Annotation:
The record is a 213-nucleotide RNA sequence from Streptomyces sp. Ru87, which matches "Streptomyces RNA 1601" in Rfam. Identified by deep sequencing of transcriptome at the end of exponential growth phase. Appears longer on northern blot than sequencing transcript. Streptomyces specific. The literature on the family includes a 2011 paper in RNA Biol by Vockenhuber et al., "Deep sequencing-based identification of small non-coding RNAs in Streptomyces coelicolor". The family's RNA type in Rfam is small RNA.
[Rfam]
RNA sequence: CAUGACCGGCCGGACGCUCAUGUGUCCGGCCCACAAGUGGAGGCUCCGCUCUCCCACCUGACCGGCCUCCGGGCCGGCGGGUCCCCGGUCAGGCAGUGCCGGUCGUCCGCCCGUUCAGCGGUCGGCGGCGCCGCCCGAUGCGCCCCACGGUGAGCCGUGGCGGUGCUCCCGGUUAAUCGGAGCCCCGCCUGUGUCCCGUCCGGGGCGUUUCUU
Number, nucleotide and partner (000 for none) at each position: 001c000002a000003u000004g090005a089006c088007c087008g086009g085010c000011c000012g027013g026014a000015c000016g000017c000018u000019c000020a000021u000022g000023u000024g000025u000026c013027c012028g083029g082030c081031c080032c079033a000034c060035a059036a000037g057038u056039g055040g054041a052042g051043g000044c000045u000046c000047c000048g000049c000050u000051c042052u041053c000054c040055c039056a038057c037058c000059u035060g034061a000062c077063c076064g075065g074066c073067c072068u000069c000070c000071g000072g067073g066074c065075c064076g063077g062078c000079g032080g031081g030082u029083c028084c000085c009086c008087g007088g006089u005090c004091a000092g135093g134094c133095a000096g132097u000098g129099c000100c128101g000102g126103u125104c124105g000106u000107c000108c000109g000110c000111c000112c000113g000114u000115u000116c000117a000118g000119c000120g000121g000122u000123c000124g104125g103126c102127g000128g100129c098130g000131c000132c096133g094134c093135c092136c000137g000138a000139u000140g000141c000142g206143c205144c204145c203146c202147a000148c198149g197150g196151u000152g000153a000154g000155c000156c193157g192158u191159g189160g188161c187162g186163g185164u000165g183166c182167u181168c180169c179170c000171g000172g000173u000174u000175a000176a000177u000178c000179g169180g168181a167182g166183c165184c000185c163186c162187g161188c160189c159190u000191g158192u157193g156194u000195c000196c150197c149198g148199u000200c000201c000202g146203g145204g144205g143206c142207g000208u000209u000210u000211c000212u000213u000